[Rfam]
RNA sequence: GAAGCGGUCUGGGAAAACGCUUUAUAUUUUUUUGAGCGGCAUAGCCGUUCAAUUAAUUUAAAGAGGAAAGUCCGGGCUCCAUAUAACAACGUAGCGGGUAAUGCCCGUCCGCCGCAAGGCGCGGAUUAGAGCCACAGAGACGAGUCUUCCUGCUUUUUGUAGGAAGGGUGAAACGCGGCAAUCUCUACGCGGAGCAAGGCCAAAUAGGGAAGGAAUAAAUUUUAGGGGCAGUUUACGGAUUGUCUUUAAACUUUAUACGGGGCAGUUAGUUCCGUUAAAACUUCCGGGUAGGUUGCUAGAAUAUGCCAGUAAUGGUAUAUCCAGAGGAAUGUUUUCCGCCUGAUUGCGAAAUCAGAUACAGAACCCGGCUUAUAGGACUGCUUCUUUU
Numbered sequence: 001g002a003a004g005c006g007g008u009c010u011g012g013g014a015a016a017a018c019g020c021u022u023u024a025u026a027u028u029u030u031u032u033u034g035a036g037c038g039g040c041a042u043a044g045c046c047g048u049u050c051a052a053u054u055a056a057u058u059u060a061a062a063g064a065g066g067a068a069a070g071u072c073c074g075g076g077c078u079c080c081a082u083a084u085a086a087c088a089a090c091g092u093a094g095c096g097g098g099u100a101a102u103g104c105c106c107g108u109c110c111g112c113c114g115c116a117a118g119g120c121g122c123g124g125a126u127u128a129g130a131g132c133c134a135c136a137g138a139g140a141c142g143a144g145u146c147u148u149c150c151u152g153c154u155u156u157u158u159g160u161a162g163g164a165a166g167g168g169u170g171a172a173a174c175g176c177g178g179c180a181a182u183c184u185c186u187a188c189g190c191g192g193a194g195c196a197a198g199g200c201c202a203a204a205u206a207g208g209g210a211a212g213g214a215a216u217a218a219a220u221u222u223u224a225g226g227g228g229c230a231g232u233u234u235a236c237g238g239a240u241u242g243u244c245u246u247u248a249a250a251c252u253u254u255a256u257a258c259g260g261g262g263c264a265g266u267u268a269g270u271u272c273c274g275u276u277a278a279a280a281c282u283u284c285c286g287g288g289u290a291g292g293u294u295g296c297u298a299g300a301a302u303a304u305g306c307c308a309g310u311a312a313u314g315g316u317a318u319a320u321c322c323a324g325a326g327g328a329a330u331g332u333u334u335u336c337c338g339c340c341u342g343a344u345u346g347c348g349a350a351a352u353c354a355g356a357u358a359c360a361g362a363a364c365c366c367g368g369c370u371u372a373u374a375g376g377a378c379u380g381c382u383u384c385u386u387u388u
Base pairs, nucleotide, nucleotide: 001384002383003382004381005380006379007378008377009376010375011373012337013336014335015334016333017332018331020063021062022061023060024059026057027056028055068371069370070369072368073367074366075365076364077194078193079192080191090189091188092187093186094108095107096106097105098104109123110121111120112119113118124185125184129183130182131179132178133177146167147166148164149163150162151161152160153159198294199293200292201291208285209284210283211282212281266277268275301320302319303318304317305316306315307314308313

The family of this 388-nucleotide RNA sequence from Candidatus Omnitrophus magneticus is "Bacterial RNase P class A". It scores 223 bits against the family's covariance model. Lineage of the source: Bacteria > Pseudomonadati > Candidatus Omnitrophota > Candidatus Omnitrophus. It is annotated as a ribozyme.